[Rfam]
RNA sequence: UUGUCCCCUGGAGUUCCCUAAAAGCACUUCACACUACCUUAAAAGCACUUAGUAUAGGCAUUUGUGAAGUGUUUGGGGGAACUCUUGGUGCUAU
Numbered sequence: 001u002u003g004u005c006c007c008c009u010g011g012a013g014u015u016c017c018c019u020a021a022a023a024g025c026a027c028u029u030c031a032c033a034c035u036a037c038c039u040u041a042a043a044a045g046c047a048c049u050u051a052g053u054a055u056a057g058g059c060a061u062u063u064g065u066g067a068a069g070u071g072u073u074u075g076g077g078g079g080a081a082c083u084c085u086u087g088g089u090g091c092u093a094u
Stems, first nucleotide, its partner, number of pairs: 005090001007088002011084009022074012
A member of the RNA family "mir-395 microRNA precursor family" from Carex littledalei, 94 nucleotides long. Gene Ontology terms of the family: miRNA-mediated post-transcriptional gene silencing and RISC complex. The match comes from Rfam's covariance-model search (68 bits). The literature on the family includes a 2004 paper in Mol Cell by Jones-Rhoades and Bartel, "Computational Identification of Plant MicroRNAs and Their Targets, Including a Stress-Induced miRNA". mir-395 was identified in both Arabidopsis thaliana and Oryza sativa computationally and was later experimentally verified. mir-395 is thought to target mRNAs coding for ATP sulphurylases. The mature sequence is excised from the 3' arm of the hairpin.